Record summary
The record is a 166-nucleotide RNA sequence from Belnapia rosea, which matches "caulobacter sRNA CC2171" in Rfam. A search with the family's covariance model found it, with a score of 89 bits. For this family Rfam cites "Small non-coding RNAs in Caulobacter crescentus" (Landt et al., Mol Microbiol, 2008). The base pairs follow the family's consensus structure, which was predicted with RNAalifold. Taxonomically the source falls in Belnapia (Bacteria, Pseudomonadati, Alphaproteobacteria, Roseomonadaceae).
RNA sequence: CAACAACCGAAAGGAGGUGAUCCAGUGUCUCAUUGCCAUAUGCCGCGUGCCCUGCCUGCGGCCUGGAUCAUCGUCACCGCCACUGCGGAGAUGGCUUCCUGAGCCCUGCCUAGGCCGGCAACGGCUGCAGCAAUGGAAAGGCCCGGGUGGGAUACCACCCGGGCCU
Numbered sequence: 001c002a003a004c005a006a007c008c009g010a011a012a013g014g015a016g017g018u019g020a021u022c023c024a025g026u027g028u029c030u031c032a033u034u035g036c037c038a039u040a041u042g043c044c045g046c047g048u049g050c051c052c053u054g055c056c057u058g059c060g061g062c063c064u065g066g067a068u069c070a071u072c073g074u075c076a077c078c079g080c081c082a083c084u085g086c087g088g089a090g091a092u093g094g095c096u097u098c099c100u101g102a103g104c105c106c107u108g109c110c111u112a113g114g115c116c117g118g119c120a121a122c123g124g125c126u127g128c129a130g131c132a133a134u135g136g137a138a139a140g141g142c143c144c145g146g147g148u149g150g151g152a153u154a155c156c157a158c159c160c161g162g163g164c165c166u
Stems, first nucleotide, its partner, number of pairs: 016023002031135006044060002047057001049055002061068001069108002072103001074102003079095004114125004139166012
Dot-bracket structure: ...............((....)).......((((((.......((.(.((...)).).))(......)((.(.(((..((((.........))))....))))...)).....((((....))))....))))))...((((((((((((....))))))))))))